Rfam assigns this 121-nucleotide RNA to the family "LOOT RNA". By type it is a small RNA. The base pairs follow the family's consensus structure, which is taken from published work.

[Rfam]
RNA sequence: UGCCUAAACCGCGCUUAUACGCACGGCAUGGCUAAAAAAGACCCAAGGAUGAUACUGAACCCCGCGUUCAGCGACUCAUCCUUGGGCUAUAUUGGGAAACCGGUAUAGGGUCGCAAGACCU
Numbered sequence: 001u002g003c004c005u006a007a008a009c010c011g012c013g014c015u016u017a018u019a020c021g022c023a024c025g026g027c028a029u030g031g032c033u034a035a036a037a038a039a040g041a042c043c044c045a046a047g048g049a050u051g052a053u054a055c056u057g058a059a060c061c062c063c064g065c066g067u068u069c070a071g072c073g074a075c076u077c078a079u080c081c082u083u084g085g086g087c088u089a090u091a092u093u094g095g096g097a098a099a100c101c102g103g104u105a106u107a108g109g110g111u112c113g114c115a116a117g118a119c120c121u
Base pairs, nucleotide, nucleotide: 002032003031004030009026010025011024013022014021042086043085044084045083046082047081048080049079050078051077052076053073055071056070057069058068059067060066088107089106090105091104092103093102094101095100108121109120110119111118112117